Record summary
The family of this 250-nucleotide sequence from [Clostridium] polysaccharolyticum is "T-box leader". By type it is a cis-regulatory leader. About the family: Uncharged tRNA acts as the effector for transcription antitermination of genes in the T-box leader family. T-boxes are found upstream of many aminoacyl-tRNA synthetase genes and some amino acid biosynthetic genes usually in Gram-positive bacteria. The anticodon of a specific tRNA base pairs to a specifier sequence within the T-box motif, and the NCCA acceptor tail of the tRNA base pairs to a conserved bulge in the T-box antiterminator hairpin.
RNA sequence: GAAAAUGCCGUGACGAGGAGUAGUACAUAUAUUAGACAUAUCAGAGAGAAGAUGGAUGGUGGAAAUCUUUAUGAAAGGUAUAUGGAAGUAGCCUUUGAGCAGUAAACUGAACGAGAGCAAUCUUUAGUAGACUUUAACGGUUCUUUCCACCGUUAUCAGGAAAACAAUAUCGACACUGGUCCGUAUUGAUGAGAGAAGAGAAAUUUCUCUGAAUUUAGGUGGUACCACGGAAUAACAUUUCGCCCUAAGC
Numbered sequence: 001g002a003a004a005a006u007g008c009c010g011u012g013a014c015g016a017g018g019a020g021u022a023g024u025a026c027a028u029a030u031a032u033u034a035g036a037c038a039u040a041u042c043a044g045a046g047a048g049a050a051g052a053u054g055g056a057u058g059g060u061g062g063a064a065a066u067c068u069u070u071a072u073g074a075a076a077g078g079u080a081u082a083u084g085g086a087a088g089u090a091g092c093c094u095u096u097g098a099g100c101a102g103u104a105a106a107c108u109g110a111a112c113g114a115g116a117g118c119a120a121u122c123u124u125u126a127g128u129a130g131a132c133u134u135u136a137a138c139g140g141u142u143c144u145u146u147c148c149a150c151c152g153u154u155a156u157c158a159g160g161a162a163a164a165c166a167a168u169a170u171c172g173a174c175a176c177u178g179g180u181c182c183g184u185a186u187u188g189a190u191g192a193g194a195g196a197a198g199a200g201a202a203a204u205u206u207c208u209c210u211g212a213a214u215u216u217a218g219g220u221g222g223u224a225c226c227a228c229g230g231a232a233u234a235a236c237a238u239u240u241c242g243c244c245c246u247a248a249g250c
Stems, first nucleotide, its partner, number of pairs: 007100002015095004026084006037073003048070006103136004108131001138152003197210005216247004228242004

Description:
Lineage of the source: Bacteria > Bacillota > Clostridia > Lachnospiraceae > Lachnoclostridium.